[Rfam]
RNA sequence: AGCCAUUAUUUAUCGAUUAAGAACCAAAUGUCUCUUGUAUAGAUCAUGUAUUAAUUU
Numbered sequence: 001a002g003c004c005a006u007u008a009u010u011u012a013u014c015g016a017u018u019a020a021g022a023a024c025c026a027a028a029u030g031u032c033u034c035u036u037g038u039a040u041a042g043a044u045c046a047u048g049u050a051u052u053a054a055u056u057u
Stems, first nucleotide, its partner, number of pairs: 018037005025030001
The record is a 57-nucleotide RNA from Phtheirospermum japonicum, which matches "Plastid-rps18 3UTR RNA" in Rfam. The literature on the family includes a 2023 paper in Plant Commun by Richter et al., "Retrograde signaling in plants: A critical review focusing on the GUN pathway and beyond". Rfam classes the family as a cis-regulatory element. Rfam's curators write: Plastid rps18 is a non-coding RNA (ncRNA) present in plastids. It was identified as a short stem-loop motif in the 3 prime untranslate region (3UTR) of rps18 gene.